Rfam assigns this 131-nucleotide sequence from Paenibacillus sp. TCA20 to the family "EGFOA RNA". Pairs were carried over by alignment from the consensus structure, which is taken from published work. The match comes from Rfam's covariance-model search (64 bits).

RNA sequence: CCCCUUCCAGAUUGGCGAUGUGACUCCAUCGACCAAUGUCCCGUCCGUGUGCGCCUAUGGCGCAGGCUGCCGGGGGGAGUUAGUUCGACUAUACGCGGUAAAGCACGACCUGGACGCGUCCCACCCCCCGA
Numbered sequence: 001c002c003c004c005u006u007c008c009a010g011a012u013u014g015g016c017g018a019u020g021u022g023a024c025u026c027c028a029u030c031g032a033c034c035a036a037u038g039u040c041c042c043g044u045c046c047g048u049g050u051g052c053g054c055c056u057a058u059g060g061c062g063c064a065g066g067c068u069g070c071c072g073g074g075g076g077g078a079g080u081u082a083g084u085u086c087g088a089c090u091a092u093a094c095g096c097g098g099u100a101a102a103g104c105a106c107g108a109c110c111u112g113g114a115c116g117c118g119u120c121c122c123a124c125c126c127c128c129c130g131a
Stems, first nucleotide, its partner, number of pairs: 006114005043109002046107004050064005071130007081091003093119005